A member of the RNA family "Small nucleolar RNA U19" from Nicotiana sylvestris, 140 nucleotides long. Its family is annotated with RNA processing and nucleolus in the Gene Ontology. The organism belongs to Nicotiana, within Eukaryota. Pairs were carried over by alignment from the consensus structure, which was predicted with WAR. The match comes from Rfam's covariance-model search (83 bits). By type it is an H/ACA-box small nucleolar RNA.

[Rfam]
RNA sequence: AUCUGGCUUAGUUAGGAGGCAGAAAUCAAACUCCGUGAACCCAAAAGAUUAGAUCUUUUGGAACUCGCUUAUAUCAAAGCCUUUUGAGUGGACUCUUUGUUAUUUUUCAUCAAUUGUCCUUAAAGCAGCUUUGGACAUUU
Numbered sequence: 001a002u003c004u005g006g007c008u009u010a011g012u013u014a015g016g017a018g019g020c021a022g023a024a025a026u027c028a029a030a031c032u033c034c035g036u037g038a039a040c041c042c043a044a045a046a047g048a049u050u051a052g053a054u055c056u057u058u059u060g061g062a063a064c065u066c067g068c069u070u071a072u073a074u075c076a077a078a079g080c081c082u083u084u085u086g087a088g089u090g091g092a093c094u095c096u097u098u099g100u101u102a103u104u105u106u107u108c109a110u111c112a113a114u115u116g117u118c119c120u121u122a123a124a125g126c127a128g129c130u131u132u133g134g135a136c137a138u139u140u
Stems, first nucleotide, its partner, number of pairs: 004021002007018003037064001040061002045057005074134007083125003088121001090119004096113001